[Rfam]
RNA sequence: GCCGGUAUGGCAGCGCGCACGCCGCACUCCGCAAAGCUGCAGCGCGGCGCUCUGGAGGCCUUGUCCCGCGCACUGCUCUUCGCGUUGCCCGACGUGAGAGCACAUCGCGGGCAGUGCUGCGGCCUCGUGUGGGAUCGAGUCAGCGUGAAGGAGAGCGAAUCCCAGGGCUCGGUGUGGAGAAGGAGGUGUCAAGUAGCCCCGUUGCGGAGAGCGUGCUCAGCCCCAUGCACAGUGCACCUCACUGGCCUCCCGCUUCCCCGCCACUUGCCACUCACUACCCCCUCCCCUUCCCUUCUCCGCCGUGCCCCCUCUCUCUCUUUCUCGCAUCCUCUGCCCUCCCACCGCCCGCGCCGGGCGCACCGGCGCUCUUUUCCGUUUUGUUUUUGCGCGUCCCAACACACAGUUGGAUCGUUUUUCUUCUCUCUAACGA
Numbered sequence: 001g002c003c004g005g006u007a008u009g010g011c012a013g014c015g016c017g018c019a020c021g022c023c024g025c026a027c028u029c030c031g032c033a034a035a036g037c038u039g040c041a042g043c044g045c046g047g048c049g050c051u052c053u054g055g056a057g058g059c060c061u062u063g064u065c066c067c068g069c070g071c072a073c074u075g076c077u078c079u080u081c082g083c084g085u086u087g088c089c090c091g092a093c094g095u096g097a098g099a100g101c102a103c104a105u106c107g108c109g110g111g112c113a114g115u116g117c118u119g120c121g122g123c124c125u126c127g128u129g130u131g132g133g134a135u136c137g138a139g140u141c142a143g144c145g146u147g148a149a150g151g152a153g154a155g156c157g158a159a160u161c162c163c164a165g166g167g168c169u170c171g172g173u174g175u176g177g178a179g180a181a182g183g184a185g186g187u188g189u190c191a192a193g194u195a196g197c198c199c200c201g202u203u204g205c206g207g208a209g210a211g212c213g214u215g216c217u218c219a220g221c222c223c224c225a226u227g228c229a230c231a232g233u234g235c236a237c238c239u240c241a242c243u244g245g246c247c248u249c250c251c252g253c254u255u256c257c258c259c260g261c262c263a264c265u266u267g268c269c270a271c272u273c274a275c276u277a278c279c280c281c282c283u284c285c286c287c288u289u290c291c292c293u294u295c296u297c298c299g300c301c302g303u304g305c306c307c308c309c310u311c312u313c314u315c316u317c318u319u320u321c322u323c324g325c326a327u328c329c330u331c332u333g334c335c336c337u338c339c340c341a342c343c344g345c346c347c348g349c350g351c352c353g354g355g356c357g358c359a360c361c362g363g364c365g366c367u368c369u370u371u372u373c374c375g376u377u378u379u380g381u382u383u384u385u386g387c388g389c390g391u392c393c394c395a396a397c398a399c400a401c402a403g404u405u406g407g408a409u410c411g412u413u414u415u416u417c418u419u420c421u422c423u424c425u426a427a428c429g430a
Stems, first nucleotide, its partner, number of pairs: 002407004009124003013120003017117004021048005027042002031040003049112004053107003057103001062102003066098001067096004075088002127399004131394005136388002139382001141380003145376002147373004152369006164337005171330002175326002177323009188269001190267005196261002204253003209249003216245002220240001226236003274303002342363003348358002409430005

The record is a 430-nucleotide sequence from Leishmania donovani, which matches "Heat shock protein 83 3' UTR" in Rfam. The base pairs follow the family's consensus structure, which was predicted with mfold. For this family Rfam cites "Preferential translation of Hsp83 in Leishmania requires a thermosensitive polypyrimidine-rich element in the 3' UTR and involves scanning of the 5' UTR" (David et al., RNA, 2010). It is one of the family's seed sequences. Gene Ontology term of the family: regulation of translation.